Shown here is a 49-nucleotide RNA sequence, a member of the family "DUF2693-FD RNA".
RNA sequence: CCCCUACGGACGGUAUGAACGGCAUCCGGUAGCGAGAAUCGGGUGGGGG
Numbered sequence: 001c002c003c004c005u006a007c008g009g010a011c012g013g014u015a016u017g018a019a020c021g022g023c024a025u026c027c028g029g030u031a032g033c034g035a036g037a038a039u040c041g042g043g044u045g046g047g048g049g
Stems, first nucleotide, its partner, number of pairs: 001049007011021002017033001023036001026042005
The family's consensus secondary structure is taken from published work. It is annotated as a small RNA. DUF2693-FD RNA is a non-coding RNA (ncRNA) recognised in Bacteroides by a bioinformatic analisis by Zasha Weinberg.